[Rfam]
Nucleotides: 179
Stems, first nucleotide, its partner, number of pairs: 007173005016078009032063007082114004086109007115141002118138008143164007
Number, partner (000 for none) and nucleotide at each position: 001000g002000a003000a004000a005000g006000a007173g008172g009171u010170a011169g012000a013000g014000g015000c016078g017077c018076a019075g020074u021073a022072u023071u024070u025000a026000a027000u028000a029000g030000u031000a032063u033062u034061a035060c036059u037058a038057c039000g040000g041000a042000g043000g044000a045000a046000a047000g048000c049000a050000c051000u052000g053000u054000g055000a056000a057038g058037u059036a060035g061034u062033a063032a064000g065000a066000a067000a068000g069000g070024a071023a072022a073021u074020a075019u076018u077017g078016c079000c080000g081000a082114a083113g084112c085111u086109u087108a088107u089106a090105a091104c092103u093000a094000a095000u096000g097000c098000u099000u100000u101000a102000a103092a104091g105090u106089u107088a108087u109086a110000a111085g112084g113083c114082u115141g116140g117000g118138g119137u120136u121135a122134u123133g124132c125131a126000g127000a128000a129000u130000a131125u132124g133123c134122a135121u136120a137119a138118c139000a140116c141115u142000g143164u144163c145162a146161c147160a148159a149158a150000g151000a152000u153000g154000u155000g156000a157000u158149u159148u160147u161146g162145u163144g164143g165000u166000g167000a168000g169011c170010u171009a172008u173007c174000a175000u176000u177000c178000a179000u

About this RNA:
Lysine riboswitch aptamer: a 179-nucleotide RNA from Clostridium butyricum. Its family is annotated with lysine biosynthetic process in the Gene Ontology. The family has 47 seed sequences and 3,224 matches in Rfam 15.1. Riboswitches are metabolite binding domains within certain messenger RNAs that serve as precision sensors for their corresponding targets. The organism belongs to Clostridium butyricum, within Bacteria. Pairs were carried over by alignment from the consensus structure, which is taken from published work.